[Rfam]
RNA sequence: CCGGCACAGUUAAUGGCACUGGAAGAAUUCACGGGAUUUUUUAUAUAUAAUUCCCGUGAUCUCUUAGUGGCAUCUAUGGUGUCGG
Numbered sequence: 001c002c003g004g005c006a007c008a009g010u011u012a013a014u015g016g017c018a019c020u021g022g023a024a025g026a027a028u029u030c031a032c033g034g035g036a037u038u039u040u041u042u043a044u045a046u047a048u049a050a051u052u053c054c055c056g057u058g059a060u061c062u063c064u065u066a067g068u069g070g071c072a073u074c075u076a077u078g079g080u081g082u083c084g085g
Stems, first nucleotide, its partner, number of pairs: 003083005009077002013073003017069002020066003023062001025061002029059006